[Rfam]
Rfam assigns this 146-nucleotide sequence from Cavia porcellus to the family "Small nucleolar RNA SNORA12". Gene Ontology terms of the family: nucleolus and RNA processing. Taxonomically the source falls in Cavia (Eukaryota, Euteleostomi, Tetrapoda, Rodentia). Rfam's curators write: U108 belongs to the H/ACA family of snoRNAs. The sequence is predicted to guide the pseudouridylation of the U372 residue in the 28S rRNA subunit. However it has not been reported as a pseudouridylation site. The family's consensus secondary structure was predicted with RNAalifold. Rfam classes the family as an H/ACA-box small nucleolar RNA.
RNA sequence: AGUUGUGAUAGUCUCUUUCUGACACAUUUGUUAAGUUUUCAAAUGGGUCUGACUCUACCACAUACAUAAUAAGGAGCUAUCAAAAGCUUAAAGACGAAAAUAUCUCUCUUGAGCUUUUAUUGUAUCAGAUAUUGGCUCUCACAAUC
Dot-bracket structure: ....(((.(((.........(((.((((((.........)))))).))).....))).)))...........(((((((.(....).)................(.(((.................))).)..)))))).......